This 103-nucleotide RNA sequence from Paenibacillus sp. FSL R7-0331 belongs to the Rfam family "Purine riboswitch aptamer". Its family is annotated with purine nucleobase biosynthetic process in the Gene Ontology. NCBI's taxonomy places the organism under Bacteria, Bacillati, Bacillota, Paenibacillaceae, Paenibacillus. A search with the family's covariance model found it, with a score of 59 bits.
RNA sequence: AGUUAACAACCACAUAACUCUUGUAUAAGCUCAUUAAUUUGGUUUGAGCGUUUCUACAGGCAACCGUAAAUUGCCCCAGGCUACAAGAGACACCGCAUGCGAA
Numbered sequence: 001a002g003u004u005a006a007c008a009a010c011c012a013c014a015u016a017a018c019u020c021u022u023g024u025a026u027a028a029g030c031u032c033a034u035u036a037a038u039u040u041g042g043u044u045u046g047a048g049c050g051u052u053u054c055u056a057c058a059g060g061c062a063a064c065c066g067u068a069a070a071u072u073g074c075c076c077c078a079g080g081c082u083a084c085a086a087g088a089g090a091c092a093c094c095g096c097a098u099g100c101g102a103a
Base pairs, nucleotide, nucleotide: 018089019088020087021086022085023084024083025082029049030048031047032046033045059075060074061073062072063071